[Rfam]
RNA sequence: AUCGAUGCAGGCCGGAACCUCCCGAGUAGCACCAGAUUGACUGAGGGGCAUCGACGUCGGGGGAAACCCUCCCGUAGAGCGGGAUAGAGCGAAAGACAAAGACCGGAAACAGCUAAAGCGCCUGCGGGCGCUUUAGCUUU
Numbered sequence: 001a002u003c004g005a006u007g008c009a010g011g012c013c014g015g016a017a018c019c020u021c022c023c024g025a026g027u028a029g030c031a032c033c034a035g036a037u038u039g040a041c042u043g044a045g046g047g048g049c050a051u052c053g054a055c056g057u058c059g060g061g062g063g064a065a066a067c068c069c070u071c072c073c074g075u076a077g078a079g080c081g082g083g084a085u086a087g088a089g090c091g092a093a094a095g096a097c098a099a100a101g102a103c104c105g106g107a108a109a110c111a112g113c114u115a116a117a118g119c120g121c122c123u124g125c126g127g128g129c130g131c132u133u134u135a136g137c138u139u140u
Stems, first nucleotide, its partner, number of pairs: 002054007014022002030045001032043001056097003060069003070084006111138012
Annotation: The family of this 140-nucleotide RNA from Shimwellia blattae is "sraL Hfq binding RNA". Pairs were carried over by alignment from the consensus structure, which was predicted with RNAalifold. Gene Ontology term of the family: negative regulation of gene expression. A search with the family's covariance model found it, with a score of 107 bits. The SraL RNA ('sra' for small RNA), discovered in E. coli, and later in Salmonella Tiphimurium. It is expressed only in stationary phase. It may possibly play a role in Salmonella virulence. The major stationary phase regulator RpoS is transcriptionally regulating SraL and directly binds to the sraL gene promoter. SraL down-regulates the expression of of the ribosome-associated chaperone Trigger Factor (TF), which is involved in the folding of the newly synthesised cystolic proteins. By type it is a small RNA.